[Rfam]
RNA sequence: GGCCGCAUUGAUCGACUGGGUAACUCAUCAAGUAAUUAAGAAAACCGAGACACGCUUCCGUAUUUAAUGGCGGGCCACAACCUUCGGGUAUUCGUAUUACGGAUCAGUGGAUUACAAAGAGUUCGGGGCACUCAAAUCAUGUCAAUCGGAGUUUCAUCGCAUCAAUCAGUGCGGCUUCCCAU
Numbered sequence: 001g002g003c004c005g006c007a008u009u010g011a012u013c014g015a016c017u018g019g020g021u022a023a024c025u026c027a028u029c030a031a032g033u034a035a036u037u038a039a040g041a042a043a044a045c046c047g048a049g050a051c052a053c054g055c056u057u058c059c060g061u062a063u064u065u066a067a068u069g070g071c072g073g074g075c076c077a078c079a080a081c082c083u084u085c086g087g088g089u090a091u092u093c094g095u096a097u098u099a100c101g102g103a104u105c106a107g108u109g110g111a112u113u114a115c116a117a118a119g120a121g122u123u124c125g126g127g128g129c130a131c132u133c134a135a136a137u138c139a140u141g142u143c144a145a146u147c148g149g150a151g152u153u154u155c156a157u158c159g160c161a162u163c164a165a166u167c168a169g170u171g172c173g174g175c176u177u178c179c180c181a182u
Stems, first nucleotide, its partner, number of pairs: 054129003058126003062122004068116002075110004080089003
This 182-nucleotide RNA from Bacteroides coprosuis belongs to the Rfam family "Bacteroidales-1 6S-Bacteroidales RNA suggested". A search with the family's covariance model found it, with a score of 143 bits. The organism belongs to Bacteroides coprosuis, within Bacteria. Rfam classes the family as a small RNA. Rfam describes the family as follows. Bacteroidales-1 was first reported in a comparative genomics-based approach of genome and metagenome sequences from Weinberg et al. 2010 In a high-resolution transcriptome map study of Bacteroides thetaiotaomicron, Ryan et al. 2020 report this sRNA as 6S RNA homologue of Bacteroides, in the study they obtain evidence of small product RNAs (pRNAs) related to 6S function.